[Rfam]
RNA sequence: GUCAGGACAGGUUCUUGGCCAGGCCUGCAGGCAGGCCUCUGCCGCUGGGCUGCUCAGGCCUGGCUUCUGUCCUGCU
Number, nucleotide and partner (000 for none) at each position: 001g076002u000003c074004a073005g072006g071007a000008c000009a000010g067011g066012u000013u000014c000015u000016u000017g000018g064019c063020c062021a061022g060023g059024c058025c057026u056027g053028c052029a000030g050031g000032c047033a046034g043035g042036c041037c000038u000039c000040u000041g036042c035043c034044g000045c000046u033047g032048g000049g000050c030051u000052g028053c027054u000055c000056a026057g025058g024059c023060c022061u021062g020063g019064c018065u000066u011067c010068u000069g000070u000071c006072c005073u004074g003075c000076u001
A member of the RNA family "Small nucleolar RNA SNORD86" from Trichechus manatus, 76 nucleotides long. About the family: U86 belongs to the C/D family of snoRNAs. It is the human orthologue of Xenopus laevis U86 and has no identified RNA target. The family has 6 seed sequences and 274 matches in Rfam 15.1. Lineage of the source: Eukaryota > Metazoa > Craniata > Eutheria > Trichechus manatus.